[Rfam]
A member of the RNA family "glmS glucosamine-6-phosphate activated ribozyme aptamer" from Enterococcus pallens, 147 nucleotides long.
RNA sequence: CCAAUAAUGAUAGCGCCAGAUCUCUAUGAGAUGACGAGGAAGAAGCUCAUCGAAAUGUUCGGCGGAUGGCUUCAGGGCAACCACACUCUACAGGUAGUUUUAAAGCAUUUCUGAGAAGAAAAAACAAAGAAACUAUCAUGUGGUACG
Numbered sequence: 001c002c003a004a005u006a007a008u009g010a011u012a013g014c015g016c017c018a019g020a021u022c023u024c025u026a027u028g029a030g031a032u033g034a035c036g037a038g039g040a041a042g043a044a045g046c047u048c049a050u051c052g053a054a055a056u057g058u059u060c061g062g063c064g065g066a067u068g069g070c071u072u073c074a075g076g077g078c079a080a081c082c083a084c085a086c087u088c089u090a091c092a093g094g095u096a097g098u099u100u101u102a103a104a105g106c107a108u109u110u111c112u113g114a115g116a117a118g119a120a121a122a123a124a125c126a127a128a129g130a131a132a133c134u135a136u137c138a139u140g141u142g143g144u145a146c147g
Base pairs, nucleotide, nucleotide: 020032021031022030023029024028042073043072044071045070046069050062051061052060053059074089075088076087077086093137094136095135096134097133098132099131108121109120110119111118112117
Pairs were carried over by alignment from the consensus structure, which is taken from published work. On this family, see Jansen et al., Nat Struct Mol Biol 2006: "Backbone and nucleobase contacts to glucosamine-6-phosphate in the glmS ribozyme". By type it is a riboswitch. Rfam describes the family as follows. This entry contains a glucosamine-6-phosphate activated ribozyme that is found in the mRNA for GlmS. GlmS is an enzyme that uses fructose-6-phosphate and glutamine to generate glucosamine-6-phosphate. Lineage of the source: Bacteria > Bacillati > Bacillota > Enterococcaceae > Enterococcus pallens.